[Rfam]
RNA sequence: CACCUCUCGAAGUGGUUGUGAUGUGUCGUACCAUUGAUCAAAAGUCGUAUCACAGCCAGCUUUGAUGAGUUCAG
Numbered sequence: 001c002a003c004c005u006c007u008c009g010a011a012g013u014g015g016u017u018g019u020g021a022u023g024u025g026u027c028g029u030a031c032c033a034u035u036g037a038u039c040a041a042a043a044g045u046c047g048u049a050u051c052a053c054a055g056c057c058a059g060c061u062u063u064g065a066u067g068a069g070u071u072c073a074g
Base pairs, nucleotide, nucleotide: 005068006067007065008064009063010062011061012060013058014057015056016055017054018053019052020051021050024049025048026047
Dot-bracket structure: ....(((((((((((((((((..(((....................)))))))))))).)))))).))......